Shown here is an 81-nucleotide RNA sequence from an Alicyclobacillaceae bacterium, a member of the family "ZMP/ZTP riboswitch aptamer (pfl RNA motif)". A search with the family's covariance model found it, with a score of 66 bits.
[Rfam]
RNA sequence: UGCACCUCACAGAACUGGCGGAAACGUGGAGCACCACGAGGGACUGUGAGUGAGAAUAUGCCGACCGCCUGGGCAAACUGG
Numbered sequence: 001u002g003c004a005c006c007u008c009a010c011a012g013a014a015c016u017g018g019c020g021g022a023a024a025c026g027u028g029g030a031g032c033a034c035c036a037c038g039a040g041g042g043a044c045u046g047u048g049a050g051u052g053a054g055a056a057u058a059u060g061c062c063g064a065c066c067g068c069c070u071g072g073g074c075a076a077a078c079u080g081g
Stems, first nucleotide, its partner, number of pairs: 003052003007049006015041002017069005026037004059075004
Dot-bracket structure: ..(((.((((((..(([[[[[....((((....))))..))..)))))))))......((((..]]]]]..))))......